[Rfam]
RNA sequence: GUCCCGAAAGCAAUGAUGUGGUAAUUUCCAAGCACAUAUCUGAUGAUCCAUGUGGAAUUCAACUACAUGAGUUUCCUGAAC
Numbered sequence: 001g002u003c004c005c006g007a008a009a010g011c012a013a014u015g016a017u018g019u020g021g022u023a024a025u026u027u028c029c030a031a032g033c034a035c036a037u038a039u040c041u042g043a044u045g046a047u048c049c050a051u052g053u054g055g056a057a058u059u060c061a062a063c064u065a066c067a068u069g070a071g072u073u074u075c076c077u078g079a080a081c
Stems, first nucleotide, its partner, number of pairs: 001081002004078001006076001008074004
RNA: Small nucleolar RNA SNORD121A